Nuclear RNase P: a 305-nucleotide RNA sequence from Astyanax mexicanus. The match comes from Rfam's covariance-model search (209 bits). Rfam 15.1 lists 3,848 matches to the family in 1,862 species.

RNA sequence: GCGGGUGGAAGCUCACUGUAGAGGUCACGUGCUGAGUGCUCGUCACUCCACCAAUCAUCUCGGGGAAGGUCUGAGAUACGAGCCAAUCGCCGCUCUCGCAGGGCGUCAUCUGACCAGAUGAGCGAGCGCACAGAGAAAUGUGGCCAGCGCGCAAGUACCCGCACGAGAUGCCGCGCGGAGUGAUCUGAACUCCGGCAGCUGAUGCGGUGCGAGCAGGCUUGGAAUCGCUCGCGGCUGGCAGACUGAGUGCGAUGUGUGAGCCGGUCCACUGAACCGGAACCCAAUUCAGACUACUCUCCUCCCGC
Numbered sequence: 001g002c003g004g005g006u007g008g009a010a011g012c013u014c015a016c017u018g019u020a021g022a023g024g025u026c027a028c029g030u031g032c033u034g035a036g037u038g039c040u041c042g043u044c045a046c047u048c049c050a051c052c053a054a055u056c057a058u059c060u061c062g063g064g065g066a067a068g069g070u071c072u073g074a075g076a077u078a079c080g081a082g083c084c085a086a087u088c089g090c091c092g093c094u095c096u097c098g099c100a101g102g103g104c105g106u107c108a109u110c111u112g113a114c115c116a117g118a119u120g121a122g123c124g125a126g127c128g129c130a131c132a133g134a135g136a137a138a139u140g141u142g143g144c145c146a147g148c149g150c151g152c153a154a155g156u157a158c159c160c161g162c163a164c165g166a167g168a169u170g171c172c173g174c175g176c177g178g179a180g181u182g183a184u185c186u187g188a189a190c191u192c193c194g195g196c197a198g199c200u201g202a203u204g205c206g207g208u209g210c211g212a213g214c215a216g217g218c219u220u221g222g223a224a225u226c227g228c229u230c231g232c233g234g235c236u237g238g239c240a241g242a243c244u245g246a247g248u249g250c251g252a253u254g255u256g257u258g259a260g261c262c263g264g265u266c267c268a269c270u271g272a273a274c275c276g277g278a279a280c281c282c283a284a285u286u287c288a289g290a291c292u293a294c295u296c297u298c299c300u301c302c303c304g305c
Stems, first nucleotide, its partner, number of pairs: 001305004007299003012260005021061004034048005071289005081236004091105005106121006122232007143218003261277005267271001